RNA: c-di-GMP-I riboswitch aptamer
RNA sequence: UCGCCGAAAGGGUAAAGCACGGGUAACCGUGUGGCACAAAGCCACCACCCAGCACAAGCUGGGCAGAGGAGCUGCCGAA
Numbered sequence: 001u002c003g004c005c006g007a008a009a010g011g012g013u014a015a016a017g018c019a020c021g022g023g024u025a026a027c028c029g030u031g032u033g034g035c036a037c038a039a040a041g042c043c044a045c046c047a048c049c050c051a052g053c054a055c056a057a058g059c060u061g062g063g064c065a066g067a068g069g070a071g072c073u074g075c076c077g078a079a
Stems, first nucleotide, its partner, number of pairs: 012037002017032006040073003045069002048063006
Dot-bracket structure: ...........((...((((((....))))))...))..(((..((.((((((....))))))....)).)))......